RNA sequence: AUAGAUACGGUGACAUGGUACCAGAAACAAUAGCAGGAAAAAUUGUCGGAGGAGUGUGUUCACUAAGUGGAGUUCUUGUCAUUGCAUUACCUGUGCCAGUAAUUGUAUCUAAU
Numbered sequence: 001a002u003a004g005a006u007a008c009g010g011u012g013a014c015a016u017g018g019u020a021c022c023a024g025a026a027a028c029a030a031u032a033g034c035a036g037g038a039a040a041a042a043u044u045g046u047c048g049g050a051g052g053a054g055u056g057u058g059u060u061c062a063c064u065a066a067g068u069g070g071a072g073u074u075c076u077u078g079u080c081a082u083u084g085c086a087u088u089a090c091c092u093g094u095g096c097c098a099g100u101a102a103u104u105g106u107a108u109c110u111a112a113u
Stems, first nucleotide, its partner, number of pairs: 001113002003110002006107005013100002017096001020094002036076004049061002

Rfam assigns this 113-nucleotide RNA from Sipha flava to the family "Potassium channel RNA editing signal". The family's consensus secondary structure is taken from published work. It is annotated as a cis-regulatory element. About the family: This family represents a group of sequences related to the human potassium channel Kv1.1 hairpin element which directs the efficient modification of an adenosine to inosine by an adenosine deaminase acting on RNA (ADAR). The ADAR modification causes an isoleucine/valine recoding event which lies in the ion-conducting pore of the potassium channel. It is thought that this editing event targets the process of fast inactivation and allows a more rapid recovery from inactivation at negative potentials. Its family is annotated with adenosine to inosine editing in the Gene Ontology. Lineage of the source: Eukaryota > Bilateria > Pterygota > Hemiptera > Sipha. For this family Rfam cites "Control of human potassium channel inactivation by editing of a small mRNA hairpin" (Bhalla et al., Nat Struct Mol Biol, 2004).